Shown here is a 278-nucleotide RNA from Xenopus tropicalis, a member of the family "Small Cajal body specific RNA 6". From the family's description: U88 is small Cajal body specific RNA (scaRNA). scaRNAs are a novel class of small nuclear RNAs which localise to the Cajal bodies. U88 is found associated with both fibrillarin and Gar1p and co-localises with coilin in Cajal bodies. The source organism's lineage runs through Eukaryota, Teleostomi, Anura, Pipoidea and Silurana. Its family is annotated with RNA processing and nucleolus in the Gene Ontology.
[Rfam]
RNA sequence: AGUCAGUGAUGACUUGUAAAAGGUCUGAUUGCAUUGUGCUUCCCCAACACACCACAUCGUCUCCCAGCAGUCCAUAUUUUCCCUCCCAUCCUGGUCUAGCUAUGCAGUGAUGGCCAAUAGGAUUGCUGAAAUUUAAGGAUAACCCACAAUACCAAGUCUUUCUUAGAAUCCAGAGCUAUGGUAGGAUUGGGUAUCCAACACCUACAGUGUAAAGGAGAAUAAGGUGUACGGUUUGAAGCUAUAUUCUUUGCAUGAUAUCUAGUUUUCAAUCUGAGACU
Number, nucleotide and partner (000 for none) at each position: 001a278002g277003u276004c275005a000006g000007u000008g000009a000010u000011g000012a000013c000014u000015u000016g000017u000018a000019a000020a000021a000022g000023g000024u000025c000026u000027g000028a000029u000030u000031g000032c000033a000034u255035u254036g253037u252038g251039c250040u000041u000042c000043c231044c230045c000046a000047a227048c226049a225050c224051a000052c000053c000054a000055c000056a000057u000058c000059g000060u000061c217062u216063c215064c214065c128066a127067g126068c125069a124070g123071u122072c000073c000074a000075u000076a000077u000078u000079u000080u000081c000082c000083c000084u000085c000086c113087c112088a111089u110090c109091c000092u107093g000094g000095u000096c000097u000098a000099g000100c000101u000102a000103u000104g000105c000106a000107g092108u000109g090110a089111u088112g087113g086114c000115c000116a000117a000118u000119a000120g000121g000122a071123u070124u069125g068126c067127u066128g065129a000130a000131a000132u000133u000134u000135a000136a000137g000138g195139a194140u193141a192142a000143c191144c190145c000146a000147c000148a000149a000150u000151a000152c181153c180154a179155a000156g177157u000158c175159u174160u173161u172162c000163u000164u000165a000166g000167a000168a000169u000170c000171c000172a161173g160174a159175g158176c000177u156178a000179u154180g153181g152182u000183a000184g000185g000186a000187u000188u000189g000190g144191g143192u141193a140194u139195c138196c000197a000198a000199c000200a000201c000202c000203u000204a000205c000206a000207g000208u000209g000210u000211a000212a000213a000214g064215g063216a062217g061218a000219a000220u000221a000222a000223g000224g050225u049226g048227u047228a000229c000230g044231g043232u000233u000234u000235g000236a000237a000238g000239c000240u000241a000242u000243a000244u000245u000246c000247u000248u000249u000250g039251c038252a037253u036254g035255a034256u000257a000258u000259c000260u000261a000262g000263u000264u000265u000266u000267c000268a000269a000270u000271c000272u000273g000274a000275g004276a003277c002278u001